Rfam assigns this 139-nucleotide sequence from Heterocephalus glaber to the family "U4 spliceosomal RNA". Pairs were carried over by alignment from the consensus structure, which is taken from published work. A search with the family's covariance model found it, with a score of 69 bits.

RNA sequence: AGCUUUGUGCAGUGGUAGUAUCAUAGCCAAUGAUGUUUAUCUGAGGUGUGAUUAUUGCUAAUUGAAGAAUCAGAAUCCAAAUGAUGAUAAUUCAUUGUAAUGCAUUCAUGUCUUUAAUUUUUUCUUCAAUUUGCAGAUU
Numbered sequence: 001a002g003c004u005u006u007g008u009g010c011a012g013u014g015g016u017a018g019u020a021u022c023a024u025a026g027c028c029a030a031u032g033a034u035g036u037u038u039a040u041c042u043g044a045g046g047u048g049u050g051a052u053u054a055u056u057g058c059u060a061a062u063u064g065a066a067g068a069a070u071c072a073g074a075a076u077c078c079a080a081a082u083g084a085u086g087a088u089a090a091u092u093c094a095u096u097g098u099a100a101u102g103c104a105u106u107c108a109u110g111u112c113u114u115u116a117a118u119u120u121u122u123u124c125u126u127c128a129a130u131u132u133g134c135a136g137a138u139u
Stems, first nucleotide, its partner, number of pairs: 020052005026047003035041001079115003084109004091102001128139004